[Rfam]
RNA sequence: GUGCAGGCUUUGCUGAGUGGUUACUUCGCAUUUGGCAGUUACCUUCCGUUCGGACACGCACAUGAGACCGCUAGCGCCAUCCUGUACUUUU
Numbered sequence: 001g002u003g004c005a006g007g008c009u010u011u012g013c014u015g016a017g018u019g020g021u022u023a024c025u026u027c028g029c030a031u032u033u034g035g036c037a038g039u040u041a042c043c044u045u046c047c048g049u050u051c052g053g054a055c056a057c058g059c060a061c062a063u064g065a066g067a068c069c070g071c072u073a074g075c076g077c078c079a080u081c082c083u084g085u086a087c088u089u090u091u
Stems, first nucleotide, its partner, number of pairs: 002086006012075004017071004025066004

A member of the RNA family "Vault RNA" from Helobdella robusta, 91 nucleotides long. It is annotated as a non-coding RNA gene. The match comes from Rfam's covariance-model search (45 bits). This family of RNAs are found as part of the enigmatic vault ribonucleoprotein complex.